[Rfam]
RNA: SAM riboswitch aptamer (S box leader)
RNA sequence: CCCUUAUUUAGAGUGGCGGAGACACAUAGGGUCUGUGAAGCCCGGCAACCCCGUAGGCAAUGGCAGUGAUUUGAUGACUGAGCUGUUGCAAGGAAGGUGCCAACCUGAGCGAAGAUAUCCGGAUUAUACCGGAAGUUCGAACAAUAAGAG
Numbered sequence: 001c002c003c004u005u006a007u008u009u010a011g012a013g014u015g016g017c018g019g020a021g022a023c024a025c026a027u028a029g030g031g032u033c034u035g036u037g038a039a040g041c042c043c044g045g046c047a048a049c050c051c052c053g054u055a056g057g058c059a060a061u062g063g064c065a066g067u068g069a070u071u072u073g074a075u076g077a078c079u080g081a082g083c084u085g086u087u088g089c090a091a092g093g094a095a096g097g098u099g100c101c102a103a104c105c106u107g108a109g110c111g112a113a114g115a116u117a118u119c120c121g122g123a124u125u126a127u128a129c130c131g132g133a134a135g136u137u138c139g140a141a142c143a144a145u146a147a148g149a150g
Stems, first nucleotide, its partner, number of pairs: 001150001003148006013043001015042003021033003027109001030106001044101004049097002051093002054090001110139004